Shown here is a 111-nucleotide RNA sequence from Brassica oleracea, a member of the family "Plastid-psbA-1 3UTR RNA". Plastid psbA-1 is a non-coding RNA (ncRNA) present in plastids. It was identified in inverted repeat sequences in the 3 prime untranslate region (3UTR) of photosystem II quinone-binding protein (psbA).
[Rfam]
RNA sequence: UUGAGGCUCCAUCUAUAAAUGGAUAAUUCUUUAGUGUUAGUCUAGACCUAGUUUAGUAAUAUUAAAAACGAGCGAUAUAAGCCUUCAACAGAAGGCUUAUAUCGCUCGUUU
Numbered sequence: 001u002u003g004a005g006g007c008u009c010c011a012u013c014u015a016u017a018a019a020u021g022g023a024u025a026a027u028u029c030u031u032u033a034g035u036g037u038u039a040g041u042c043u044a045g046a047c048c049u050a051g052u053u054u055a056g057u058a059a060u061a062u063u064a065a066a067a068a069c070g071a072g073c074g075a076u077a078u079a080a081g082c083c084u085u086c087a088a089c090a091g092a093a094g095g096c097u098u099a100u101a102u103c104g105c106u107c108g109u110u111u
Stems, first nucleotide, its partner, number of pairs: 008023005066111013080097003084093003
Clan: Plastid-psbA 3UTR RNA clan. The organism belongs to Brassica oleracea, within Eukaryota. By type it is a cis-regulatory element.